[Rfam]
RNA sequence: UAAUUCAGUUGCUGAUGAAUAACCAAAAUCAUAAACAAAUUCCUCUUUGACGGGCCGAUAGCAAUAUUGGCCUUUUUUUU
Numbered sequence: 001u002a003a004u005u006c007a008g009u010u011g012c013u014g015a016u017g018a019a020u021a022a023c024c025a026a027a028a029u030c031a032u033a034a035a036c037a038a039a040u041u042c043c044u045c046u047u048u049g050a051c052g053g054g055c056c057g058a059u060a061g062c063a064a065u066a067u068u069g070g071c072c073u074u075u076u077u078u079u080u
Base pairs, nucleotide, nucleotide: 007020009018010017011016029034052073053072054071055070056069057068058067059066060065

About this RNA
This 80-nucleotide RNA from Pantoea alhagi belongs to the Rfam family "sroB RNA". The organism belongs to Pantoea, within Bacteria. The family's RNA type in Rfam is small RNA.